Description:
The family of this 84-nucleotide sequence from Steinernema carpocapsae is "mir-81 microRNA precursor family". The family's consensus secondary structure was predicted with RNAalifold.

[Rfam]
RNA sequence: UAUGAGAGGGCAAACGGUUUUCACGUUGAUCUGCAGAUAUUUAAGCUCUCUGAGAUCAUUGUGAAAGCUAGUUGCCCUUUUUUG
Numbered sequence: 001u002a003u004g005a006g007a008g009g010g011c012a013a014a015c016g017g018u019u020u021u022c023a024c025g026u027u028g029a030u031c032u033g034c035a036g037a038u039a040u041u042u043a044a045g046c047u048c049u050c051u052g053a054g055a056u057c058a059u060u061g062u063g064a065a066a067g068c069u070a071g072u073u074g075c076c077c078u079u080u081u082u083u084g
Stems, first nucleotide, its partner, number of pairs: 009076004016069009027058006035051003
The match comes from Rfam's covariance-model search (65 bits).